[Rfam]
Rfam assigns this 46-nucleotide RNA sequence from Propithecus coquereli to the family "Histone 3' UTR stem-loop". A reference for the family is DeJong et al. (2002), "NMR structure and dynamics of the RNA-binding site for the histone mRNA stem-loop binding protein", RNA. Rfam describes the family as follows. The mRNAs of metazoan histone genes lack a poly-A tail. 3' end processing occurs at a site between a highly conserved stem-loop (modelled by this family) and a purine rich region around 20 nts downstream (the histone downstream element, or HDE). The stem-loop is bound by a 31 kDa stem-loop binding protein (SLBP - also termed the histone hairpin binding protein, or HBP). Together with U7 snRNA binding of the HDE, SLBP binding nucleate s the formation of the processing complex. Pairs were carried over by alignment from the consensus structure, which is taken from published work. Lineage of the source: Eukaryota > Gnathostomata > Sarcopterygii > Lemuriformes > Propithecus. It is annotated as a cis-regulatory element.
RNA sequence: CCAAAGGCUCUUUUAAGAGCCACUUACGUUAUCAGUAGUUAGAGCU
Dot-bracket structure: .....((((((....)))))).........................
Numbered sequence: 001c002c003a004a005a006g007g008c009u010c011u012u013u014u015a016a017g018a019g020c021c022a023c024u025u026a027c028g029u030u031a032u033c034a035g036u037a038g039u040u041a042g043a044g045c046u
Stems, first nucleotide, its partner, number of pairs: 006021006